[Rfam]
Nucleotides: 180
Stems, first nucleotide, its partner, number of pairs: 023100001025098003034093001036091001041089001043087001044085001046084003052078008162180001164178001167175001
Number, partner (000 for none) and nucleotide at each position: 001000u002000c003000a004000c005000c006000c007000g008000u009000c010000u011000u012000a013000u014000a015000g016000c017000u018000g019000u020000u021000a022000u023100g024000g025098g026097u027096u028000g029000c030000g031000a032000c033000c034093g035000a036091g037000c038000u039000u040000a041089g042000c043087c044085u045000u046084g047083u048082u049000c050000a051000u052078u053077u054076u055075u056074u057073u058072a059071c060000a061000c062000a063000a064000u065000a066000g067000g068000g069000c070000u071059g072058u073057a074056a075055a076054a077053a078052a079000u080000u081000g082048a083047a084046c085044a086000c087043g088000c089041c090000u091036c092000a093034c094000u095000g096027a097026g098025c099000a100023c101000c102000g103000c104000g105000c106000c107000g108000g109000c110000a111000g112000c113000g114000g115000u116000c117000g118000c119000a120000a121000g122000c123000c124000g125000c126000u127000u128000c129000a130000g131000a132000a133000u134000g135000c136000c137000c138000u139000g140000g141000a142000a143000c144000g145000c146000c147000c148000c149000a150000a151000a152000a153000u154000u155000g156000g157000c158000c159000a160000u161000g162180c163000a164178g165000a166000c167175c168000u169000u170000u171000u172000u173000u174000a175167g176000g177000g178164c179000a180162g
The family of this 180-nucleotide RNA from Pseudomonas indica is "Pseudomonas sRNA P1". This small RNA (sRNA) was computationally identified in the genome of the opportunistic pathogen Pseudomonas aeruginosa and its expression verified by northern blot analysis. There appears to be two related copies of P1 sRNA in the P.aeruginosa PA01 genome and both copies appear to be located upstream of predicted glutamine synthetase genes. By type it is a non-coding RNA gene. A search with the family's covariance model found it, with a score of 132 bits. Lineage of the source: Bacteria > Pseudomonadati > Pseudomonadota > Gammaproteobacteria > Pseudomonas.